[Rfam]
RNA sequence: CAGGAAUAGACAAUGAUGUCAGAAUUCCAAGCACAUGUCUGAGCUUCCUGCUGAAACUCUCAUCAUCACUGAGUCUUUCCUG
Number, nucleotide and partner (000 for none) at each position: 001c082002a081003g080004g079005a078006a000007u000008a076009g075010a074011c073012a000013a000014u000015g000016a000017u000018g000019u000020c000021a000022g000023a000024a000025u000026u000027c000028c000029a000030a000031g000032c000033a000034c000035a000036u000037g000038u000039c000040u000041g000042a000043g000044c000045u000046u000047c000048c000049u000050g000051c000052u000053g000054a000055a000056a000057c000058u000059c000060u000061c000062a000063u000064c000065a000066u000067c000068a000069c000070u000071g000072a000073g011074u010075c009076u008077u000078u005079c004080c003081u002082g001
Background
A member of the RNA family "Small nucleolar RNA SNORD121A" from Hymenochirus boettgeri, 82 nucleotides long. The source organism's lineage runs through Eukaryota, Euteleostomi, Amphibia, Anura and Hymenochirus. The literature on the family includes a 2006 paper in Nucleic Acids Res by Yang et al., "snoSeeker: an advanced computational package for screening of guide and orphan snoRNA genes in the human genome". The family's RNA type in Rfam is C/D-box small nucleolar RNA. The match comes from Rfam's covariance-model search (46 bits).